[Rfam]
RNA sequence: UACCCCUAGGAAGAAUUAAUCUAAAAAAAAAUUUAAAAGUAGUGGACAGAUUUAAUUUAUUUCCAUUGACGAAUACCCAUUUCAGAGGGAUG
Numbered sequence: 001u002a003c004c005c006c007u008a009g010g011a012a013g014a015a016u017u018a019a020u021c022u023a024a025a026a027a028a029a030a031a032u033u034u035a036a037a038a039g040u041a042g043u044g045g046a047c048a049g050a051u052u053u054a055a056u057u058u059a060u061u062u063c064c065a066u067u068g069a070c071g072a073a074u075a076c077c078c079a080u081u082u083c084a085g086a087g088g089g090a091u092g
Base pairs, nucleotide, nucleotide: 001092002091004089005088006087
Shown here is a 92-nucleotide RNA sequence from Durio zibethinus, a member of the family "Small nucleolar RNA R21". On this family, see Barneche et al., J Mol Biol 2001: "Identification of 66 box C/D snoRNAs in Arabidopsis thaliana: extensive gene duplications generated multiple isoforms predicting new ribosomal RNA 2'-O-methylation sites". The base pairs follow the family's consensus structure, which was predicted with PFOLD.